The record is a 131-nucleotide RNA sequence from Mus spicilegus, which matches "Small nucleolar RNA SNORA68" in Rfam. Taxonomically the source falls in Mus (Eukaryota, Vertebrata, Sarcopterygii, Glires). Pairs were carried over by alignment from the consensus structure, which was predicted with PFOLD. About the family: U68 is a member of the H/ACA class of small nucleolar RNAs (snoRNAs) which act as guides in the the modification of uridines to pseudouridines. Its family is annotated with RNA processing and nucleolus in the Gene Ontology.

[Rfam]
RNA sequence: CUGGCACCCAUCCCAAGAACUGGUGCUGCCUGUAGUUGCUGUCUAAACAGUGGUGCACACAGCAAAGGGGCUUCAUUGCUUUUGGGGGGCUGUGCAGUACCCCCCAGAGUGAAUCAGUAGGUUCUACAGUC
Numbered sequence: 001c002u003g004g005c006a007c008c009c010a011u012c013c014c015a016a017g018a019a020c021u022g023g024u025g026c027u028g029c030c031u032g033u034a035g036u037u038g039c040u041g042u043c044u045a046a047a048c049a050g051u052g053g054u055g056c057a058c059a060c061a062g063c064a065a066a067g068g069g070g071c072u073u074c075a076u077u078g079c080u081u082u083u084g085g086g087g088g089g090c091u092g093u094g095c096a097g098u099a100c101c102c103c104c105c106a107g108a109g110u111g112a113a114u115c116a117g118u119a120g121g122u123u124c125u126a127c128a129g130u131c
Stems, first nucleotide, its partner, number of pairs: 004056005019042002022039001025036003068124006080109010
Dot-bracket structure: ...(((((..........((.(..(((......)))..).)).........)))))...........((((((......((((((((((..........)))))))))).........)))))).......